[Rfam]
A member of the RNA family "mir-1231 microRNA precursor family" from Mus musculus, 81 nucleotides long. The family's consensus secondary structure was predicted with RNAalifold. The organism belongs to Mus, within Eukaryota. Rfam links the family to the GO terms miRNA-mediated post-transcriptional gene silencing and RISC complex.
RNA sequence: UCUGGGCAGAGCUGCAGGAGAGAAGGGCAGGGCCGGACAUCUCUGCCACCCUGCCACCUGCCCUGUCUGUUCUGCCCACAG
Numbered sequence: 001u002c003u004g005g006g007c008a009g010a011g012c013u014g015c016a017g018g019a020g021a022g023a024a025g026g027g028c029a030g031g032g033c034c035g036g037a038c039a040u041c042u043c044u045g046c047c048a049c050c051c052u053g054c055c056a057c058c059u060g061c062c063c064u065g066u067c068u069g070u071u072c073u074g075c076c077c078a079c080a081g
Stems, first nucleotide, its partner, number of pairs: 003078003008073005014066005021059002024052004031047002035043002